[Rfam]
RNA sequence: UUACUAUAAAGCUGUAUGGAGUUGGAACAGCUUCCCUUAAUUUGCCACUAGGGGCGCUGUUCCAACUCCAUACAAAAAUUUGAGUUA
Numbered sequence: 001u002u003a004c005u006a007u008a009a010a011g012c013u014g015u016a017u018g019g020a021g022u023u024g025g026a027a028c029a030g031c032u033u034c035c036c037u038u039a040a041u042u043u044g045c046c047a048c049u050a051g052g053g054g055c056g057c058u059g060u061u062c063c064a065a066c067u068c069c070a071u072a073c074a075a076a077a078a079u080u081u082g083a084g085u086u087a
Base pairs, nucleotide, nucleotide: 008081009080010079013074014073015072016071018069020067021066022065023064024063025062026061027060028059029058034053035052036051041047
RNA: mir-2807 microRNA precursor family
Organism: Bombyx mori